This 141-nucleotide sequence from Caenorhabditis auriculariae belongs to the Rfam family "Nematode snoRNA ceN88". A reference for the family is Jia et al. (2007), "Systematic identification of non-coding RNA 2,2,7-trimethylguanosine cap structures in Caenorhabditis elegans", BMC Mol Biol. Gene Ontology terms of the family: nucleolus and RNA processing. A search with the family's covariance model found it, with a score of 121 bits. By type it is an H/ACA-box small nucleolar RNA.
RNA sequence: UUUCUCUUAUCUUGGCGCAGCCGCUGGUAAAUGUGGAUGUGUAUGUUAUAAGAGAUAAAAUAUCGCCUACGGCAGUCGGGUCUCCUUCGGUGCUUUUUUUUUCAAACUCAAAAAGUAUCAUCCUCUGGACUCGAAACAUUC
Numbered sequence: 001u002u003u004c005u006c007u008u009a010u011c012u013u014g015g016c017g018c019a020g021c022c023g024c025u026g027g028u029a030a031a032u033g034u035g036g037a038u039g040u041g042u043a044u045g046u047u048a049u050a051a052g053a054g055a056u057a058a059a060a061u062a063u064c065g066c067c068u069a070c071g072g073c074a075g076u077c078g079g080g081u082c083u084c085c086u087u088c089g090g091u092g093c094u095u096u097u098u099u100u101u102u103c104a105a106a107c108u109c110a111a112a113a114a115g116u117a118u119c120a121u122c123c124u125c126u127g128g129a130c131u132c133g134a135a136a137c138a139u140u141c
Base pairs, nucleotide, nucleotide: 003055004054005053006052007051008050009049010048015042016041017040018039021036022035023034024033065073066072067071076134077133078132079131080130081129082128083127089119090118093115094114095113096112097111098110